[Rfam]
RNA sequence: GUCUGACAUGGCCCGACGGUGGCAAGUCUUGCCCCAACGUAUGGCCGAGGUGCGAUGAC
Numbered sequence: 001g002u003c004u005g006a007c008a009u010g011g012c013c014c015g016a017c018g019g020u021g022g023c024a025a026g027u028c029u030u031g032c033c034c035c036a037a038c039g040u041a042u043g044g045c046c047g048a049g050g051u052g053c054g055a056u057g058a059c
Stems, first nucleotide, its partner, number of pairs: 007049001009047005015042001018035002021033005
RNA: Selenocysteine insertion sequence 3